Shown here is a 90-nucleotide RNA from Desulforamulus ruminis, a member of the family "c-di-GMP-I riboswitch aptamer". It scores 79 bits against the family's covariance model.

RNA sequence: UAAUCCAAAAGGCAAACCAUCCGAAAGGUUGGGACGCAAAGCCAUGGAUCUAAGGCAGGUUUUAUAUGCUAAGAUUGCCAGGUUGCGGAG
Numbered sequence: 001u002a003a004u005c006c007a008a009a010a011g012g013c014a015a016a017c018c019a020u021c022c023g024a025a026a027g028g029u030u031g032g033g034a035c036g037c038a039a040a041g042c043c044a045u046g047g048a049u050c051u052a053a054g055g056c057a058g059g060u061u062u063u064a065u066a067u068g069c070u071a072a073g074a075u076u077g078c079c080a081g082g083u084u085g086c087g088g089a090g
Stems, first nucleotide, its partner, number of pairs: 012037002017032003021028002040084004045080003048075003055069003
Dot-bracket structure: ...........((...(((.((....)).)))...))..((((.((((((....(((.........)))...)))..)))))))......